RNA sequence: UGCUCCCUGCGGUGUGCGCCUAGACUGCGAAUUCUUUGAACCAAUAAAUUUGCCAAGGUUGCAGCUAUAGAUGAGUGCUGGUGUGCGCGUUACCCGUUAAUGUGCCUGAUGCGCUUGCGCUGUGACCCCUUGAACCCUAGGUUCAAGAUAGCGGUCUGACGGCAUUGGCGGGGGGCAC
Numbered sequence: 001u002g003c004u005c006c007c008u009g010c011g012g013u014g015u016g017c018g019c020c021u022a023g024a025c026u027g028c029g030a031a032u033u034c035u036u037u038g039a040a041c042c043a044a045u046a047a048a049u050u051u052g053c054c055a056a057g058g059u060u061g062c063a064g065c066u067a068u069a070g071a072u073g074a075g076u077g078c079u080g081g082u083g084u085g086c087g088c089g090u091u092a093c094c095c096g097u098u099a100a101u102g103u104g105c106c107u108g109a110u111g112c113g114c115u116u117g118c119g120c121u122g123u124g125a126c127c128c129c130u131u132g133a134a135c136c137c138u139a140g141g142u143u144c145a146a147g148a149u150a151g152c153g154g155u156c157u158g159a160c161g162g163c164a165u166u167g168g169c170g171g172g173g174g175g176c177a178c
Stems, first nucleotide, its partner, number of pairs: 002176009012165004017161002033148003037145006057127003061123005068117001073116006085105002088102005
Source information
The record is a 178-nucleotide sequence from Sulfuriferula sp. AH1, which matches "6S / SsrS RNA" in Rfam. It scores 57 bits against the family's covariance model. It is annotated as a non-coding RNA gene. From the family's description: E. coli 6S RNA was the first non coding RNA to be sequenced, but its function was unknown until recently. It consists of 184 nucleotides that fold into an extended hairpin structure with a large single-stranded internal bulge. The 6S RNA specifically associates with RNA polymerase holoenzyme containing the sigma70 specificity factor. This interaction represses expression from a sigma70-dependent promoter during stationary phase. 6S RNA homologs have recently been identified in most bacterial genomes.